[Rfam]
RNA sequence: CCCUACUUGUCGGAGUGCCAUUUGGCUGAGAUCGCAUAAUUAAGUGCGGGAUCCGCAGAACCUGAUCGGGUUAAUACCCGCGUAGGAAACAAGAAAGUCUCAAAU
Numbered sequence: 001c002c003c004u005a006c007u008u009g010u011c012g013g014a015g016u017g018c019c020a021u022u023u024g025g026c027u028g029a030g031a032u033c034g035c036a037u038a039a040u041u042a043a044g045u046g047c048g049g050g051a052u053c054c055g056c057a058g059a060a061c062c063u064g065a066u067c068g069g070g071u072u073a074a075u076a077c078c079c080g081c082g083u084a085g086g087a088a089a090c091a092a093g094a095a096a097g098u099c100u101c102a103a104a105u
Stems, first nucleotide, its partner, number of pairs: 006093005011055004016049001017026003033048005061086004067080004

Description:
TPP riboswitch aptamer (THI element): a 105-nucleotide RNA sequence from Marinomonas transparens. Rfam links the family to the GO term thiamine pyrophosphate binding. The base pairs follow the family's consensus structure, which is taken from published work.